[Rfam]
RNA sequence: GACCGUCGCCCCAACGGUAAUUCCGCUUAGUACGAGAGGAACCGCGGAUUCAGAUAAUUGGUUUUUGCGGCUGUCCGACCGGGCAGUGCCGCGAAGCUACCAUCUGCUGGAUUAUGGCUGAACGCCUCUAAGUCAGAAUCCAUGCCGGAACGGGGUGAUUUACCCCUACACACUUCACUCGUGUACGAAUAGGCUUCGGCCCCGGACCUCAGCAGGCCGACGACGGGGUGGCCCCCGAAACGGGCCCCCCCAGUUGGCGCAUUGCAAUUUCACCGUGCGUAGGGAUAAAUCCUUUGCAGACGACUUAGCCGCGCAGCCGGGUCGUGUAAAUAGUCGAGUAGCCUUGUUGUUACGAGCUAUUGAGCGUAAGCCCGUGCUGCCUUGAUUUGU
Numbered sequence: 001g002a003c004c005g006u007c008g009c010c011c012c013a014a015c016g017g018u019a020a021u022u023c024c025g026c027u028u029a030g031u032a033c034g035a036g037a038g039g040a041a042c043c044g045c046g047g048a049u050u051c052a053g054a055u056a057a058u059u060g061g062u063u064u065u066u067g068c069g070g071c072u073g074u075c076c077g078a079c080c081g082g083g084c085a086g087u088g089c090c091g092c093g094a095a096g097c098u099a100c101c102a103u104c105u106g107c108u109g110g111a112u113u114a115u116g117g118c119u120g121a122a123c124g125c126c127u128c129u130a131a132g133u134c135a136g137a138a139u140c141c142a143u144g145c146c147g148g149a150a151c152g153g154g155g156u157g158a159u160u161u162a163c164c165c166c167u168a169c170a171c172a173c174u175u176c177a178c179u180c181g182u183g184u185a186c187g188a189a190u191a192g193g194c195u196u197c198g199g200c201c202c203c204g205g206a207c208c209u210c211a212g213c214a215g216g217c218c219g220a221c222g223a224c225g226g227g228g229u230g231g232c233c234c235c236c237g238a239a240a241c242g243g244g245c246c247c248c249c250c251c252a253g254u255u256g257g258c259g260c261a262u263u264g265c266a267a268u269u270u271c272a273c274c275g276u277g278c279g280u281a282g283g284g285a286u287a288a289a290u291c292c293u294u295u296g297c298a299g300a301c302g303a304c305u306u307a308g309c310c311g312c313g314c315a316g317c318c319g320g321g322u323c324g325u326g327u328a329a330a331u332a333g334u335c336g337a338g339u340a341g342c343c344u345u346g347u348u349g350u351u352a353c354g355a356g357c358u359a360u361u362g363a364g365c366g367u368a369a370g371c372c373c374g375u376g377c378u379g380c381c382u383u384g385a386u387u388u389g390u
Stems, first nucleotide, its partner, number of pairs: 005159008015147004020050001022048005051106005059099003066093005071086006108142003115135005165283005171277001287388005292308002296304001313380005319373003323366002330360004335356001338353005